[Rfam]
RNA sequence: GUGCGGUCACAAAAAACAUCGCUUUUUGAACGUUGGCUUUGCCAACGGCCUUUGGGGGAGCUAUCCUUAAAAGGAUUGCGAAUAAAAAUCCGAU
Numbered sequence: 001g002u003g004c005g006g007u008c009a010c011a012a013a014a015a016a017c018a019u020c021g022c023u024u025u026u027u028g029a030a031c032g033u034u035g036g037c038u039u040u041g042c043c044a045a046c047g048g049c050c051u052u053u054g055g056g057g058g059a060g061c062u063a064u065c066c067u068u069a070a071a072a073g074g075a076u077u078g079c080g081a082a083u084a085a086a087a088a089u090c091c092g093a094u
Stems, first nucleotide, its partner, number of pairs: 010028006017021001031047007049056002060079002063076005080091001082089002

Annotation
Aggregatibacter sRNA 22: a 94-nucleotide RNA from Actinobacillus succinogenes. It is annotated as a small RNA. The literature on the family includes a 2017 paper in DNA Res by Oogai et al., "Small RNA repertoires and their intraspecies variation in Aggregatibacter actinomycetemcomitans".